[Rfam]
RNA: mir-1421 microRNA precursor family
Organism: Ornithorhynchus anatinus
RNA sequence: GUGAGGGGGCCGUACCUCAUGCAGAGUGUUGGUGGAAUUUCCUGCAUAGUGUGCGGCCUCCCCAC
Dot-bracket structure: (((.(((((((((((.(.(((((...................))))).).))))))))))).)))